RNA sequence: UUCUGAUCGAACCACUCUUACGUGUCAUGUUCUGAUUGGAUAUCAAUUCUAUGUAUGGAUAUUGUUGUUGUCAUUGGUCAAUCAAAAUAUGACACGUGACGGUCAACAUUU
Numbered sequence: 001u002u003c004u005g006a007u008c009g010a011a012c013c014a015c016u017c018u019u020a021c022g023u024g025u026c027a028u029g030u031u032c033u034g035a036u037u038g039g040a041u042a043u044c045a046a047u048u049c050u051a052u053g054u055a056u057g058g059a060u061a062u063u064g065u066u067g068u069u070g071u072c073a074u075u076g077g078u079c080a081a082u083c084a085a086a087a088u089a090u091g092a093c094a095c096g097u098g099a100c101g102g103u104c105a106a107c108a109u110u111u
Stems, first nucleotide, its partner, number of pairs: 018099003022095002026091003030087002033084001035082003
MIR1520 microRNA precursor family: a 111-nucleotide sequence from Glycine soja. The family has 18 seed sequences and 1,934 matches in Rfam 15.1. Pairs were carried over by alignment from the consensus structure, which was predicted with RNAalifold. Clan: MIR1520 microRNA precursor clan. NCBI's taxonomy places the organism under Eukaryota, Streptophyta, Euphyllophyta, eudicotyledons, Glycine subgen. Soja.